A member of the RNA family "Mammalian CPEB3 ribozyme" from Alligator sinensis, 77 nucleotides long. The family's consensus secondary structure is taken from published work.

RNA sequence: UGCUUUGUUAUGAUGGCCAUAGCAGAAGAGCUCUUAGCACAGCCCUGUCAGAUUCCAACAAAUCUGUAAAUUCUGUU
Numbered sequence: 001u002g003c004u005u006u007g008u009u010a011u012g013a014u015g016g017c018c019a020u021a022g023c024a025g026a027a028g029a030g031c032u033c034u035u036a037g038c039a040c041a042g043c044c045c046u047g048u049c050a051g052a053u054u055c056c057a058a059c060a061a062a063u064c065u066g067u068a069a070a071u072u073c074u075g076u077u
Base pairs, nucleotide, nucleotide: 015044016043017042021077022076023075024074025073026072027071028040030038049066050065051064052063053062054061